[Rfam]
RNA: Clostridiales-2 RNA
RNA sequence: AAAAUGAAGGGGUUGUAGGGGCAGUAUUUCCCCUGCCGGUUUAAGGAAGGUGAUCAGCAACGAUAGUUGCGUCGAAGGGAAA
Numbered sequence: 001a002a003a004a005u006g007a008a009g010g011g012g013u014u015g016u017a018g019g020g021g022c023a024g025u026a027u028u029u030c031c032c033c034u035g036c037c038g039g040u041u042u043a044a045g046g047a048a049g050g051u052g053a054u055c056a057g058c059a060a061c062g063a064u065a066g067u068u069g070c071g072u073c074g075a076a077g078g079g080a081a082a
Stems, first nucleotide, its partner, number of pairs: 015036007057070005
Dot-bracket structure: ..............(((((((........)))))))....................(((((....)))))............